[Rfam]
RNA: Archaeal signal recognition particle RNA
Organism: Thermoplasma acidophilum
RNA sequence: UGCCAGACUUGGCCGGGGGGUUAGGCGUCCCCUGUACCCGAAGUCUAGAUGCGGGGGCGACAGCCCGGUGAGACCACCUGGGUUUCUGCCAGGCCCUGCGGAAUCAAUGAUCUCCUGUCCCUCUGGAUCGGAGGCCCAUGGACACGAUCUCAAAGGAGAACGCGCCCAUGGCUUGCCAGGGGAACGCGCCAGGCCCGGAAGGGAGCAACGACACCCUGGACUCUCGAUGCUGGAGGGGUGCGGGGGUGAGAGGAAACAGGGGGUACCUGACAGGACGCCCAGACCGAACCGGGUGUGUCUGGCU
Numbered sequence: 001u002g003c004c005a006g007a008c009u010u011g012g013c014c015g016g017g018g019g020g021u022u023a024g025g026c027g028u029c030c031c032c033u034g035u036a037c038c039c040g041a042a043g044u045c046u047a048g049a050u051g052c053g054g055g056g057g058c059g060a061c062a063g064c065c066c067g068g069u070g071a072g073a074c075c076a077c078c079u080g081g082g083u084u085u086c087u088g089c090c091a092g093g094c095c096c097u098g099c100g101g102a103a104u105c106a107a108u109g110a111u112c113u114c115c116u117g118u119c120c121c122u123c124u125g126g127a128u129c130g131g132a133g134g135c136c137c138a139u140g141g142a143c144a145c146g147a148u149c150u151c152a153a154a155g156g157a158g159a160a161c162g163c164g165c166c167c168a169u170g171g172c173u174u175g176c177c178a179g180g181g182g183a184a185c186g187c188g189c190c191a192g193g194c195c196c197g198g199a200a201g202g203g204a205g206c207a208a209c210g211a212c213a214c215c216c217u218g219g220a221c222u223c224u225c226g227a228u229g230c231u232g233g234a235g236g237g238g239u240g241c242g243g244g245g246g247u248g249a250g251a252g253g254a255a256a257c258a259g260g261g262g263g264u265a266c267c268u269g270a271c272a273g274g275a276c277g278c279c280c281a282g283a284c285c286g287a288a289c290c291g292g293g294u295g296u297g298u299c300u301g302g303c304u
Stems, first nucleotide, its partner, number of pairs: 002303007010060001012058003015033007037055004063294007072285001075282001080279001084275005090269004095263003099259001101257001104254002108250001112246007119237008127228004131223003134173001136171006143164001145162002148159004176219006187210002194203003